[Rfam]
RNA: U1 spliceosomal RNA
RNA sequence: AUACUUACCUGGCAGGGGUGACUCCAUGAUCCUGUAGGUGGAUCGCCCAGGGUGAGGAUCAGCCAUUGCACUGCGGCGAUCUGGCCUCUGUGAAUUCUCCACAUGGGAGAAUCUCAACUGCACAAUUUAUGGUGGUGGGGGACUGCGUUCGCGCUCUCCCCUG
Numbered sequence: 001a002u003a004c005u006u007a008c009c010u011g012g013c014a015g016g017g018g019u020g021a022c023u024c025c026a027u028g029a030u031c032c033u034g035u036a037g038g039u040g041g042a043u044c045g046c047c048c049a050g051g052g053u054g055a056g057g058a059u060c061a062g063c064c065a066u067u068g069c070a071c072u073g074c075g076g077c078g079a080u081c082u083g084g085c086c087u088c089u090g091u092g093a094a095u096u097c098u099c100c101a102c103a104u105g106g107g108a109g110a111a112u113c114u115c116a117a118c119u120g121c122a123c124a125a126u127u128u129a130u131g132g133u134g135g136u137g138g139g140g141g142a143c144u145g146c147g148u149u150c151g152c153g154c155u156c157u158c159c160c161c162u163g
Base pairs, nucleotide, nucleotide: 012121013120014119015118016048017047018046019045020044021043023042024041025040026039027038049089050088051087052086054085056082057081058080060078062077063076064075091116092115093114094112095110096109098108099107137162138161139160140159141158142157145154146153147152